[Rfam]
The record is a 95-nucleotide RNA from bacterium HR16, which matches "c-di-GMP-I riboswitch aptamer" in Rfam. GEMM was predicted in a large-scale screen for bacterial structured RNA regulatory elements. Genes associated with GEMM are involved in a diverse array of functions, including chemotaxis regulation, signal transduction, secretion and chitin.
RNA sequence: AUCCGAUAAAGGCAAACCCACAGAAAUGUGGGGACGCAAAGCCAUUGGGGUCUAAGUCCCGACGAGGGUCGGGAUAUGAUCGCCCGGCUGCCGAA
Number, nucleotide and partner (000 for none) at each position: 001a000002u000003c000004c000005g000006a000007u000008a000009a000010a000011g000012g037013c036014a000015a000016a000017c032018c031019c030020a029021c028022a027023g000024a000025a000026a000027u022028g021029u020030g019031g018032g017033g000034a000035c000036g013037c012038a000039a000040a089041g088042c087043c086044a000045u000046u000047g085048g084049g083050g080051u079052c078053u000054a000055a000056g000057u074058c073059c072060c071061g070062a069063c068064g000065a000066g000067g000068g063069u062070c061071g060072g059073g058074a057075u000076a000077u000078g052079a051080u050081c000082g000083c049084c048085c047086g043087g042088c041089u040090g000091c000092c000093g000094a000095a000
A search with the family's covariance model found it, with a score of 79 bits.